Description: Shown here is a 60-nucleotide RNA from Pyrobaculum aerophilum, a member of the family "Pyrobaculum sRNA 206". Non canonical pseudouridylation guide sRNA features.
[Rfam]
RNA sequence: UGGCGGCUGAGAGCCCCGGAGGGGCCCCGUGAGGCAACCGCAGUCGGUCCCCCUUGCACA
Numbered sequence: 001u002g003g004c005g006g007c008u009g010a011g012a013g014c015c016c017c018g019g020a021g022g023g024g025c026c027c028c029g030u031g032a033g034g035c036a037a038c039c040g041c042a043g044u045c046g047g048u049c050c051c052c053c054u055u056g057c058a059c060a
Stems, first nucleotide, its partner, number of pairs: 001042001003041003006035003013025005
The pairing is the family consensus, mapped onto this sequence. By type it is an H/ACA-box small nucleolar RNA. The organism belongs to Pyrobaculum aerophilum, within Archaea. It is one of the family's seed sequences.